[Rfam]
RNA sequence: UGAAGAAACAUCAUUGAGUGCAGCGUUGAUGAAUUGAACUUCUUUCGAAAUUUCAUCAGCGCUGCACCCAAUUAUGUUUCUA
Dot-bracket structure: .....((((((.((((.(((((((((((.(((....................))).))))))))))).)))).))))))...
This 82-nucleotide RNA from Prunus yedoensis belongs to the Rfam family "MIR397 microRNA precursor family". A search with the family's covariance model found it, with a score of 78 bits. The base pairs follow the family's consensus structure, which was predicted with WAR. Gene Ontology terms of the family: RISC complex and miRNA-mediated post-transcriptional gene silencing. On this family, see Wu et al., Plant Cell 2009: "Rice MicroRNA effector complexes and targets".